The family of this 129-nucleotide RNA from Chenopodium quinoa is "Small nucleolar RNA snoR74".

RNA sequence: AAAAAAGCAAGGCUCUGUUGCAUAUCAGAAUGGGGCUUCCGUAAACUUCAGGAAAAUUGAAAUGAAUCGUUAUUGGGUGAACCUCUGUUUUAUUUAGUGGCUGAAGGUUCAGUAAAUGAUUUAACAUGC
Numbered sequence: 001a002a003a004a005a006a007g008c009a010a011g012g013c014u015c016u017g018u019u020g021c022a023u024a025u026c027a028g029a030a031u032g033g034g035g036c037u038u039c040c041g042u043a044a045a046c047u048u049c050a051g052g053a054a055a056a057u058u059g060a061a062a063u064g065a066a067u068c069g070u071u072a073u074u075g076g077g078u079g080a081a082c083c084u085c086u087g088u089u090u091u092a093u094u095u096a097g098u099g100g101c102u103g104a105a106g107g108u109u110c111a112g113u114a115a116a117u118g119a120u121u122u123a124a125c126a127u128g129c
Base pairs, nucleotide, nucleotide: 005048006047007046011037012036014034015033016032017031065121066120067119068118069117070116071115078111079110080109081108082107083106084105

NCBI's taxonomy places the organism under Eukaryota, Embryophyta, Euphyllophyta, Atripliceae, Chenopodium. Gene Ontology terms of the family: nucleolus and RNA processing. The family's RNA type in Rfam is H/ACA-box small nucleolar RNA.